RNA sequence: GAAGCAUGGUUGAAACAAGAUUUAUCAUGAGAAGUCAGCCGAGGUCAUAGUACUGGAAGUUUUUUUUUCAGGAAGGGC
Numbered sequence: 001g002a003a004g005c006a007u008g009g010u011u012g013a014a015a016c017a018a019g020a021u022u023u024a025u026c027a028u029g030a031g032a033a034g035u036c037a038g039c040c041g042a043g044g045u046c047a048u049a050g051u052a053c054u055g056g057a058a059g060u061u062u063u064u065u066u067u068u069c070a071g072g073a074a075g076g077g078c
Base pairs, nucleotide, nucleotide: 001022002021005019007017008016010014035042036041044078045077046076053071054070055069056068057067058066
The family of this 78-nucleotide sequence from Pectinatus brassicae is "Group II catalytic intron D1-D4-1". Gene Ontology term of the family: Group II intron splicing. Rfam describes the family as follows. Group II introns are found in rRNA, tRNA and mRNA of organelles in fungi, plants and protists, and also in mRNA in bacteria.